[Rfam]
RNA sequence: UUUGGAUCAGUGAUGCCGUAUAUUACUGCUUUAUCUAUCUGUAAUAAAUUCUUUUUUGAAGUUAACUUAUUUUCCCGAGAUCCAAU
Number, nucleotide and partner (000 for none) at each position: 001u000002u085003u084004g083005g082006a081007u080008c000009a000010g000011u000012g000013a000014u000015g000016c000017c000018g000019u000020a000021u000022a000023u000024u000025a000026c000027u000028g000029c000030u000031u000032u000033a000034u000035c000036u000037a000038u000039c000040u000041g000042u000043a000044a000045u000046a000047a000048a000049u000050u000051c000052u000053u000054u000055u000056u000057u000058g000059a000060a000061g000062u000063u000064a000065a000066c000067u000068u000069a000070u000071u000072u000073u000074c000075c000076c000077g000078a000079g000080a007081u006082c005083c004084a003085a002086u000
RNA: Small nucleolar RNA snoR27
Organism: Salvia splendens